[Rfam]
RNA: Small nucleolar RNA SNORD22
RNA sequence: UCCCUGUGAUGAAGCUCUCGCAUGUCUUACGCCCUGUGUCAGGACCAGAACCUGCAAAGGUGAACCCACUGGUCUUGCCAGGGCAAGAAGGGGAUGACCUGUUGGGGUAUCCAACGGUCUGAUGGGAC
Dot-bracket structure: ((((.......................................................................................................................)))).
Numbered sequence: 001u002c003c004c005u006g007u008g009a010u011g012a013a014g015c016u017c018u019c020g021c022a023u024g025u026c027u028u029a030c031g032c033c034c035u036g037u038g039u040c041a042g043g044a045c046c047a048g049a050a051c052c053u054g055c056a057a058a059g060g061u062g063a064a065c066c067c068a069c070u071g072g073u074c075u076u077g078c079c080a081g082g083g084c085a086a087g088a089a090g091g092g093g094a095u096g097a098c099c100u101g102u103u104g105g106g107g108u109a110u111c112c113a114a115c116g117g118u119c120u121g122a123u124g125g126g127a128c
Stems, first nucleotide, its partner, number of pairs: 001127004